[Rfam]
RNA sequence: AGUAUAUAGAAAUAAAUCUUUCGUAUAACCCCAAUAAUAAGGUUUGGGGGUCUCUACCAAGAACCAAUAAUUCUUGAUUACGAAGAAGUUAUACAUAUUU
Numbered sequence: 001a002g003u004a005u006a007u008a009g010a011a012a013u014a015a016a017u018c019u020u021u022c023g024u025a026u027a028a029c030c031c032c033a034a035u036a037a038u039a040a041g042g043u044u045u046g047g048g049g050g051u052c053u054c055u056a057c058c059a060a061g062a063a064c065c066a067a068u069a070a071u072u073c074u075u076g077a078u079u080a081c082g083a084a085g086a087a088g089u090u091a092u093a094c095a096u097a098u099u100u
Stems, first nucleotide, its partner, number of pairs: 019085007029049006058076006

Source information: Shown here is a 100-nucleotide RNA sequence from Romboutsia lituseburensis, a member of the family "Purine riboswitch aptamer". Taxonomically the source falls in Romboutsia lituseburensis (Bacteria, Bacillota, Clostridia, Peptostreptococcales). A search with the family's covariance model found it, with a score of 79 bits.